[Rfam]
Nucleotides: 108
Stems, first nucleotide, its partner, number of pairs: 001015005016041003020037002023034004048091006054080002057077003061073004
Number, partner (000 for none) and nucleotide at each position: 001015g002014a003013g004012g005011g006000u007000c008000a009000g010000c011005u012004u013003c014002u015001c016041a017040u018039a019000u020037u021036c022000g023034g024033u025032u026031u027000a028000c029000a030000u031026g032025a033024a034023c035000u036021g037020a038000u039018u040017a041016u042000a043000a044000a045000c046000c047000a048091c049090c050089g051088u052087a053086a054080g055079c056000u057077g058076c059075u060000u061073u062072g063071g064070u065000a066000a067000c068000g069000a070064g071063c072062c073061a074000c075059g076058g077057u078000a079055g080054u081000g082000a083000g084000c085000g086053u087052u088051a089050c090049g091048g092000a093000a094000a095000a096000u097000g098000a099000a100000u101000g102000g103000g104000a105000a106000u107000g108000u